RNA sequence: AACUUAUUCAGAAAAGUGGAGGGAAUUGACCCGAUGAAACUUUAGCAACCUGUUUAGAAAUAAAUAAGGUGCUACAUUCAACUCGCAUUAGCGGGCAAGAUAAGUC
Number, nucleotide and partner (000 for none) at each position: 001a000002a105003c104004u103005u102006a101007u100008u099009c000010a000011g000012a000013a043014a042015a041016g040017u039018g000019g000020a000021g032022g031023g030024a000025a000026u081027u080028g079029a078030c023031c022032c021033g000034a000035u000036g000037a000038a000039a017040c016041u015042u014043u013044a073045g072046c071047a070048a000049c069050c068051u000052g000053u063054u062055u000056a000057g000058a000059a000060a000061u000062a054063a053064a000065u000066a000067a000068g050069g049070u047071g046072c045073u044074a000075c000076a000077u098078u029079c028080a027081a026082c095083u094084c093085g092086c091087a000088u000089u000090a000091g086092c085093g084094g083095g082096c000097a000098a077099g008100a007101u006102a005103a004104g003105u002106c000

A member of the RNA family "SAM riboswitch aptamer (S box leader)" from Halpernia frigidisoli, 106 nucleotides long. The organism belongs to Halpernia, within Bacteria. Rfam links the family to the GO term regulation of gene expression. The base pairs follow the family's consensus structure, which is taken from published work. It scores 78 bits against the family's covariance model. The SAM riboswitch is found upstream of a number of genes which code for proteins involved in methionine or cysteine biosynthesis in Gram-positive bacteria. The SAM riboswitch acts at the level of transcription termination control. The predicted structure consists of a complex stem-loop region followed by a single stem loop terminator region.